Shown here is a 146-nucleotide sequence from Bacillus atrophaeus, a member of the family "Bacillus tryptophan operon leader". On this family, see Babitzke et al., Methods Enzymol 2003: "Role of RNA structure in transcription attenuation in Bacillus subtilis: the trpEDCFBA operon as a model system". The family's RNA type in Rfam is cis-regulatory leader.

RNA sequence: AGCUUAGAAAUACACAAAAGUGUGUAUAAAGCAGAAGUUAGAACAGUUGAGUUAGAGAAUAGGGUAGCUGAGAAUGAGUUUAGUUGAGCUGAGGACAAAUUUGUUAAUUCCUACCCAAAAGAAGUUUAUUCUUUUGGGUUUAUUUU
Numbered sequence: 001a002g003c004u005u006a007g008a009a010a011u012a013c014a015c016a017a018a019a020g021u022g023u024g025u026a027u028a029a030a031g032c033a034g035a036a037g038u039u040a041g042a043a044c045a046g047u048u049g050a051g052u053u054a055g056a057g058a059a060u061a062g063g064g065u066a067g068c069u070g071a072g073a074a075u076g077a078g079u080u081u082a083g084u085u086g087a088g089c090u091g092a093g094g095a096c097a098a099a100u101u102u103g104u105u106a107a108u109u110c111c112u113a114c115c116c117a118a119a120a121g122a123a124g125u126u127u128a129u130u131c132u133u134u135u136g137g138g139u140u141u142a143u144u145u146u
Stems, first nucleotide, its partner, number of pairs: 002032003010027006062116006070108001072105002074102001076100001078096003